[Rfam]
RNA: SAH (S-adenosyl-L-homocysteine) riboswitch aptamer
RNA sequence: CACCGAGGAGCGUUGCAACGGGACAAGGUCCCGCCAGGCUCGGUGAGGGCUCCAUAAGUUUCAACGGCGCUUACUCUGA
Numbered sequence: 001c002a003c004c005g006a007g008g009a010g011c012g013u014u015g016c017a018a019c020g021g022g023a024c025a026a027g028g029u030c031c032c033g034c035c036a037g038g039c040u041c042g043g044u045g046a047g048g049g050c051u052c053c054a055u056a057a058g059u060u061u062c063a064a065c066g067g068c069g070c071u072u073a074c075u076c077u078g079a
Stems, first nucleotide, its partner, number of pairs: 002044005019033006